[Rfam]
RNA sequence: UGGAAAUGAUGAAAUAGAGAUAAUUGGGUGUUGAAUGUUGUAUGAUUGGAAAUUUUUAGUAUGUAAAGUAAUUAAUCUAAGUUUAAUGUUUUGUAGAUACUUAAUAGAGAGUAUGUGUGCAUGUGUGUGUGCUCCUGGAGGCUAUGGAAAGGGGGCACUGACUAGUGAUGCUGAUAUUGGAGUGCAUCUGAGGCUGUUGUAGAAUACAUGGGUUGUUGAUUACAACAUUGCCGAUGAUUAAAACCCAAGAACAGCUCACCUAAGUAGUCUAGCACCCUAAAAUCUCUAACAGGGUCGUUAAACAUGGUCCUGUGAUCUGAUCCAG
Numbered sequence: 001u002g003g004a005a006a007u008g009a010u011g012a013a014a015u016a017g018a019g020a021u022a023a024u025u026g027g028g029u030g031u032u033g034a035a036u037g038u039u040g041u042a043u044g045a046u047u048g049g050a051a052a053u054u055u056u057u058a059g060u061a062u063g064u065a066a067a068g069u070a071a072u073u074a075a076u077c078u079a080a081g082u083u084u085a086a087u088g089u090u091u092u093g094u095a096g097a098u099a100c101u102u103a104a105u106a107g108a109g110a111g112u113a114u115g116u117g118u119g120c121a122u123g124u125g126u127g128u129g130u131g132c133u134c135c136u137g138g139a140g141g142c143u144a145u146g147g148a149a150a151g152g153g154g155g156c157a158c159u160g161a162c163u164a165g166u167g168a169u170g171c172u173g174a175u176a177u178u179g180g181a182g183u184g185c186a187u188c189u190g191a192g193g194c195u196g197u198u199g200u201a202g203a204a205u206a207c208a209u210g211g212g213u214u215g216u217u218g219a220u221u222a223c224a225a226c227a228u229u230g231c232c233g234a235u236g237a238u239u240a241a242a243a244c245c246c247a248a249g250a251a252c253a254g255c256u257c258a259c260c261u262a263a264g265u266a267g268u269c270u271a272g273c274a275c276c277c278u279a280a281a282a283u284c285u286c287u288a289a290c291a292g293g294g295u296c297g298u299u300a301a302a303c304a305u306g307g308u309c310c311u312g313u314g315a316u317c318u319g320a321u322c323c324a325g
Stems, first nucleotide, its partner, number of pairs: 001324004195227008203217004207212001

The family of this 325-nucleotide RNA sequence from Diceros bicornis is "Small Cajal body-specific RNA 7".
Rfam 15.1 lists 570 matches to the family in 531 species.
The source organism's lineage runs through Eukaryota, Metazoa, Chordata, Teleostomi and Diceros bicornis.
By type it is a small Cajal body RNA.